[Rfam]
RNA sequence: UACGUUGUCGCGACAGUAAUCCAACUCAGUACGAGAGGAACCGUUGGGUCACAUAAUUGGUAAAUGCGGUUGCCUGAGCAGGCAAUGCCGCGAAGCUACCAUGUGCAGGAUAACGGCUGAACGCCUCUAAGCCAGAAUCCAUGCUGAAAAGCGACGAUACUGCGGAAAGGGACAUACGCGAGUAGCGAUAGGCUUCGGCCCUGGAUCAUGCAAAGCGCUUAGCGCGGAUCAUAACUCGAAACCCCUGACCACUAGAUCUAUUGUAGACGACUUUCUUGAGACCGGGGAUUGUAAGUGUGAGAGUAAGCUUGUCUUACGAUCCGCUGAGAUUCAGCCCGCGUUUUCUCCGAUCUGU
Numbered sequence: 001u002a003c004g005u006u007g008u009c010g011c012g013a014c015a016g017u018a019a020u021c022c023a024a025c026u027c028a029g030u031a032c033g034a035g036a037g038g039a040a041c042c043g044u045u046g047g048g049u050c051a052c053a054u055a056a057u058u059g060g061u062a063a064a065u066g067c068g069g070u071u072g073c074c075u076g077a078g079c080a081g082g083c084a085a086u087g088c089c090g091c092g093a094a095g096c097u098a099c100c101a102u103g104u105g106c107a108g109g110a111u112a113a114c115g116g117c118u119g120a121a122c123g124c125c126u127c128u129a130a131g132c133c134a135g136a137a138u139c140c141a142u143g144c145u146g147a148a149a150a151g152c153g154a155c156g157a158u159a160c161u162g163c164g165g166a167a168a169g170g171g172a173c174a175u176a177c178g179c180g181a182g183u184a185g186c187g188a189u190a191g192g193c194u195u196c197g198g199c200c201c202u203g204g205a206u207c208a209u210g211c212a213a214a215g216c217g218c219u220u221a222g223c224g225c226g227g228a229u230c231a232u233a234a235c236u237c238g239a240a241a242c243c244c245c246u247g248a249c250c251a252c253u254a255g256a257u258c259u260a261u262u263g264u265a266g267a268c269g270a271c272u273u274u275c276u277u278g279a280g281a282c283c284g285g286g287g288a289u290u291g292u293a294a295g296u297g298u299g300a301g302a303g304u305a306a307g308c309u310u311g312u313c314u315u316a317c318g319a320u321c322c323g324c325u326g327a328g329a330u331u332c333a334g335c336c337c338g339c340g341u342u343u344u345c346u347c348c349g350a351u352c353u354g355u
Base pairs, nucleotide, nucleotide: 004158005157006156007155008154009153010152011151014146015145016144017143019049020048021047022046023045024044025043050105051104052103053102054101058098059097060096065092066091067090068089069088070085071084072083073082074081075080108140109139115133116132117131118130164250165249168246169245170244254353255352256351257350258349260274263271278345279344280343281342283340284337285336286335288330289329295324296323297322300320303317304316305315306314307313
A member of the RNA family "Eukaryotic large subunit ribosomal RNA" from Cafeteria roenbergensis, 355 nucleotides of a longer RNA. Gene Ontology terms of the family: structural constituent of ribosome and ribosome.